[Rfam]
RNA sequence: AGGGCGUAUUCCGAAAAGCCCGAUUUUGAACAGAGUAGGAA
Numbered sequence: 001a002g003g004g005c006g007u008a009u010u011c012c013g014a015a016a017a018g019c020c021c022g023a024u025u026u027u028g029a030a031c032a033g034a035g036u037a038g039g040a041a
Stems, first nucleotide, its partner, number of pairs: 002021004010040003
A member of the RNA family "DUF805b RNA" from Myroides odoratus, 41 nucleotides long. By type it is a cis-regulatory element. Pairs were carried over by alignment from the consensus structure, which is taken from published work. Rfam's curators put it in the seed alignment.